Small nucleolar RNA Z43: a 99-nucleotide sequence from Acer saccharum. The source organism's lineage runs through Eukaryota, Streptophyta, Streptophytina, rosids and Acer. Pairs were carried over by alignment from the consensus structure, which was predicted with PFOLD. A reference for the family is Chen et al. (2003), "The high diversity of snoRNAs in plants: identification and comparative study of 120 snoRNA genes from Oryza sativa", Nucleic Acids Res. By type it is a C/D-box small nucleolar RNA. Its family is annotated with RNA processing and nucleolus in the Gene Ontology.
[Rfam]
RNA sequence: GAUUGUGAAGAUUAUAUCUUGGUCUUGUUCGCCGUAAUGGGCUAUAAUUAAUUAGCCUUGCCGACCAUUCUGAUAUAUCAACACCCAUAUUCUUCAAAC
Numbered sequence: 001g002a003u004u005g006u007g008a009a010g011a012u013u014a015u016a017u018c019u020u021g022g023u024c025u026u027g028u029u030c031g032c033c034g035u036a037a038u039g040g041g042c043u044a045u046a047a048u049u050a051a052u053u054a055g056c057c058u059u060g061c062c063g064a065c066c067a068u069u070c071u072g073a074u075a076u077a078u079c080a081a082c083a084c085c086c087a088u089a090u091u092c093u094u095c096a097a098a099c
Stems, first nucleotide, its partner, number of pairs: 001099001003097001046059002048054001